[Rfam]
RNA sequence: CUCUGGGCCAUCAUAUUGGCUCAGGGCAAAGGAG
Numbered sequence: 001c002u003c004u005g006g007g008c009c010a011u012c013a014u015a016u017u018g019g020c021u022c023a024g025g026g027c028a029a030a031g032g033a034g
Base pairs, nucleotide, nucleotide: 001026002025003024004023005022006021007020008019009018010017
Dot-bracket structure: ((((((((((......))))))))))........
The record is a 34-nucleotide RNA sequence from Lentilactobacillus farraginis, which matches "L31-Firmicutes ribosomal protein leader" in Rfam. Rfam classes the family as a cis-regulatory leader. NCBI's taxonomy places the organism under Bacteria, Bacillota, Lactobacillaceae, Lentilactobacillus, Lentilactobacillus farraginis.